[Rfam]
RNA sequence: GCAACGGGGGCAGGCUAAGAAGCGCGGAGUGUCCACGGUCGCCGUUCCGCCGCGCUGAGCCACUGGCGAGACCGGCGCCGCCGGCGU
Number, nucleotide and partner (000 for none) at each position: 001g087002c086003a000004a000005c083006g082007g081008g000009g079010g078011c077012a000013g061014g060015c059016u000017a000018a000019g000020a000021a000022g055023c054024g053025c052026g051027g050028a000029g048030u000031g000032u000033c000034c000035a000036c000037g073038g072039u069040c068041g067042c066043c065044g000045u000046u000047c000048c029049g000050c027051c026052g025053c024054g023055c022056u000057g000058a000059g015060c014061c013062a000063c000064u000065g043066g042067c041068g040069a039070g000071a000072c038073c037074g000075g000076c000077g011078c010079c009080g000081c007082c006083g005084g000085c000086g002087u001